[Rfam]
RNA sequence: AGGAGGAACAGCUGCAGUUGCUAUGGUAGCUCUGGAAGCCUGGAUUCAGCCUCCGCAGGAACUCUGGGGCUCUCCGUCUGCAGGGCCUGGAGGCUCGGGGGCGGG
Numbered sequence: 001a002g003g004a005g006g007a008a009c010a011g012c013u014g015c016a017g018u019u020g021c022u023a024u025g026g027u028a029g030c031u032c033u034g035g036a037a038g039c040c041u042g043g044a045u046u047c048a049g050c051c052u053c054c055g056c057a058g059g060a061a062c063u064c065u066g067g068g069g070c071u072c073u074c075c076g077u078c079u080g081c082a083g084g085g086c087c088u089g090g091a092g093g094c095u096c097g098g099g100g101g102c103g104g105g
Base pairs, nucleotide, nucleotide: 003096004095005094009089010088011087012085013084020077021076025072028071029070030069031068032067033066034065035064036063039059040058041057042056
This 105-nucleotide RNA from Nyctereutes procyonoides belongs to the Rfam family "mir-8834 microRNA precursor family". NCBI's taxonomy places the organism under Eukaryota, Craniata, Boreoeutheria, Laurasiatheria, Nyctereutes.